Shown here is a 130-nucleotide RNA from Rousettus aegyptiacus, a member of the family "Small nucleolar RNA SNORA65". Pairs were carried over by alignment from the consensus structure, which was predicted with RNAalifold. NCBI's taxonomy places the organism under Eukaryota, Euteleostomi, Dipnotetrapodomorpha, Theria, Rousettus. U65 belongs to the H/ACA class of snoRNAs which are thought to guide the sites of modification of uridines to pseudouridines.
[Rfam]
RNA sequence: CCCACCACUGUACCUGACCAGUUCUUUGCUGGCUGGUGCAGUCCAGUAGUGAGCUAAUUUUAAACCCCAGCUCACGAAACAGGGUUGUUCUUCAUGUGGAUGACUCUGUGCUGAGAGCAUGGGAACACCC
Numbered sequence: 001c002c003c004a005c006c007a008c009u010g011u012a013c014c015u016g017a018c019c020a021g022u023u024c025u026u027u028g029c030u031g032g033c034u035g036g037u038g039c040a041g042u043c044c045a046g047u048a049g050u051g052a053g054c055u056a057a058u059u060u061u062a063a064a065c066c067c068c069a070g071c072u073c074a075c076g077a078a079a080c081a082g083g084g085u086u087g088u089u090c091u092u093c094a095u096g097u098g099g100a101u102g103a104c105u106c107u108g109u110g111c112u113g114a115g116a117g118c119a120u121g122g123g124a125a126c127a128c129c130c
Base pairs, nucleotide, nucleotide: 005049007047008046009045010044017037018036019035020034021033022031065123066122067121069120070118071117072116073115076111080108081107082106083105084104085103088100089099090098